Description:
mir-2807 microRNA precursor family: an 84-nucleotide sequence from Bombyx mori. The match comes from Rfam's covariance-model search (65 bits). Lineage of the source: Eukaryota > Eumetazoa > Pterygota > Bombycoidea > Bombyx.
RNA sequence: UUAGCUCAAAUUUGUAUGCAAUUGGAAUAGCGCCCCUAGCGGUAAACGUAGGCAAACGUUCCAACUGCAUACAAAUUUGAGUUC
Numbered sequence: 001u002u003a004g005c006u007c008a009a010a011u012u013u014g015u016a017u018g019c020a021a022u023u024g025g026a027a028u029a030g031c032g033c034c035c036c037u038a039g040c041g042g043u044a045a046a047c048g049u050a051g052g053c054a055a056a057c058g059u060u061c062c063a064a065c066u067g068c069a070u071a072c073a074a075a076u077u078u079g080a081g082u083u084c
Base pairs, nucleotide, nucleotide: 008078009077010076011075012074013073014072015071016070018068020066022064023063024062025061026060027059028058034052035051039047